The family of this 352-nucleotide RNA sequence from Acidobacterium capsulatum is "transfer-messenger RNA".
It is annotated as a non-coding RNA gene.
NCBI's taxonomy places the organism under Bacteria, Pseudomonadati, Terriglobales, Acidobacteriaceae, Acidobacterium capsulatum.
RNA sequence: GGGGGCGUCACGGUUUCGACGGGAUUGACUGCGGCAAAGAGGCAUGCCGGGGGGUGGGCACCCGUAAUCGCUCGCAAAACAAUACUUGCCAACAACAAUCUGGCACUCGCAGCUUAAUUAAAUAAGUUGCCGUCCUCUGAGGCUUCGCCUGUGGGCCGAGGCAGGACGUCAUACAGCAGGCUGGUUCCUUCGGCUGGGUCUGGGCCGCGGGGAUGAGAUCCACGGACUAGCAUUCUGCGUAUCUUGUCGCUUCUAAGCGCAGAGUGCGAAACCUAAAGGAAUGCGACUGAGCAUGGAGUCUCUUUUCUGACACCAAUUUCGGACGCGGGUUCGACUCCCGCCGCCUCCACCA
Numbered sequence: 001g002g003g004g005g006c007g008u009c010a011c012g013g014u015u016u017c018g019a020c021g022g023g024a025u026u027g028a029c030u031g032c033g034g035c036a037a038a039g040a041g042g043c044a045u046g047c048c049g050g051g052g053g054g055u056g057g058g059c060a061c062c063c064g065u066a067a068u069c070g071c072u073c074g075c076a077a078a079a080c081a082a083u084a085c086u087u088g089c090c091a092a093c094a095a096c097a098a099u100c101u102g103g104c105a106c107u108c109g110c111a112g113c114u115u116a117a118u119u120a121a122a123u124a125a126g127u128u129g130c131c132g133u134c135c136u137c138u139g140a141g142g143c144u145u146c147g148c149c150u151g152u153g154g155g156c157c158g159a160g161g162c163a164g165g166a167c168g169u170c171a172u173a174c175a176g177c178a179g180g181c182u183g184g185u186u187c188c189u190u191c192g193g194c195u196g197g198g199u200c201u202g203g204g205c206c207g208c209g210g211g212g213a214u215g216a217g218a219u220c221c222a223c224g225g226a227c228u229a230g231c232a233u234u235c236u237g238c239g240u241a242u243c244u245u246g247u248c249g250c251u252u253c254u255a256a257g258c259g260c261a262g263a264g265u266g267c268g269a270a271a272c273c274u275a276a277a278g279g280a281a282u283g284c285g286a287c288u289g290a291g292c293a294u295g296g297a298g299u300c301u302c303u304u305u306u307c308u309g310a311c312a313c314c315a316a317u318u319u320c321g322g323a324c325g326c327g328g329g330u331u332c333g334a335c336u337c338c339c340g341c342c343g344c345c346u347c348c349a350c351c352a
Stems, first nucleotide, its partner, number of pairs: 001348007020321007031311001032309003036305007043295005048064004054075006109130008131168005137161002141157004147181006184214006196228002199225002230267008243257003246287004251281003325341005
Dot-bracket structure: (((((((............(((((((....((((.(((((((((((([[[[..((((((.]]]].....)))))).................................((((((((......))))))))(((((.((..((((..[[[[[[.))))..))..))))).......]]]]]]..((((((......[[.[[........)))))).........]].]].((((((((.....((([[[[.[[[.)))..))))))))...........]]]..]]]]...)))))...))))))).))).)...)))))))...(((((.......))))))))))))....